[Rfam]
RNA sequence: UUUUGAAAAAGGCACCCCCGGGCGAAAGCGCGGGGUCGCAAAGUCACCGGUCUAAGGGGCGAGGCCCUACGACAGCGGGACCGCCGGA
Numbered sequence: 001u002u003u004u005g006a007a008a009a010a011g012g013c014a015c016c017c018c019c020g021g022g023c024g025a026a027a028g029c030g031c032g033g034g035g036u037c038g039c040a041a042a043g044u045c046a047c048c049g050g051u052c053u054a055a056g057g058g059g060c061g062a063g064g065c066c067c068u069a070c071g072a073c074a075g076c077g078g079g080a081c082c083g084c085c086g087g088a
Base pairs, nucleotide, nucleotide: 012039013038017034018033019032020031022029023028043081044080045079047078048077049076050073051072052071057067058066059065060064
A member of the RNA family "c-di-GMP-I riboswitch aptamer" from Tenderia electrophaga, 88 nucleotides long. NCBI's taxonomy places the organism under Bacteria, Pseudomonadota, Gammaproteobacteria, Tenderiaceae (SeqCode), Tenderia (SeqCode). It scores 66 bits against the family's covariance model.